Overview: A member of the RNA family "DUF2693 RNA", 205 nucleotides long. Pairs were carried over by alignment from the consensus structure, which is taken from published work. It is one of the family's seed sequences. It is annotated as a small RNA.

RNA sequence: GAUCAUUGACAUACUGACAAGGCUAAAAAAACAAAGAGAUAACUAACGUAGAGAGGCUACAAGCCCUCUACAAGUGACUAACAAUACAGCUUGCAAGUCUAGACCUAUCGUGCUAGAUGAUGAACCAGCAAAAGCGGUGAAGCCCUCGCAGGGUGAUGAACGCAGAGGCUGGCAACCUCGCCCCUCGCAAAGGGCUUGCAAGCAC
Numbered sequence: 001g002a003u004c005a006u007u008g009a010c011a012u013a014c015u016g017a018c019a020a021g022g023c024u025a026a027a028a029a030a031a032c033a034a035a036g037a038g039a040u041a042a043c044u045a046a047c048g049u050a051g052a053g054a055g056g057c058u059a060c061a062a063g064c065c066c067u068c069u070a071c072a073a074g075u076g077a078c079u080a081a082c083a084a085u086a087c088a089g090c091u092u093g094c095a096a097g098u099c100u101a102g103a104c105c106u107a108u109c110g111u112g113c114u115a116g117a118u119g120a121u122g123a124a125c126c127a128g129c130a131a132a133a134g135c136g137g138u139g140a141a142g143c144c145c146u147c148g149c150a151g152g153g154u155g156a157u158g159a160a161c162g163c164a165g166a167g168g169c170u171g172g173c174a175a176c177c178u179c180g181c182c183c184c185u186c187g188c189a190a191a192g193g194g195c196u197u198g199c200a201a202g203c204a205c
Stems, first nucleotide, its partner, number of pairs: 050069004055064001089203008097118006125172005180195004
Dot-bracket structure: .................................................((((.(........).))))...................((((((((((((((..........))))))......(((((......................................))))).......((((........))))))))))))..